[Rfam]
RNA sequence: AGAAAGGGCUUCUGUCAUGAGUGUCACACGUAGAGCAGCCUUAUUGCUCUACAUGUGGAAUCGACAUCAAGAGAUUCCAGAAGCAUAAUUUUCUGGUACUUGGGCAGCUGCUGAUCAUAGGUCCUGGCGCCCAC
Numbered sequence: 001a002g003a004a005a006g007g008g009c010u011u012c013u014g015u016c017a018u019g020a021g022u023g024u025c026a027c028a029c030g031u032a033g034a035g036c037a038g039c040c041u042u043a044u045u046g047c048u049c050u051a052c053a054u055g056u057g058g059a060a061u062c063g064a065c066a067u068c069a070a071g072a073g074a075u076u077c078c079a080g081a082a083g084c085a086u087a088a089u090u091u092u093c094u095g096g097u098a099c100u101u102g103g104g105c106a107g108c109u110g111c112u113g114a115u116c117a118u119a120g121g122u123c124c125u126g127g128c129g130c131c132c133a134c
Base pairs, nucleotide, nucleotide: 008084009083010082011081012080013026014025016023017022027055028054030052031051032050033049034048035047036046037045038044056079057078058077059076060075061074062073102132103131104130105129107128108127109126110125113123114122115121116120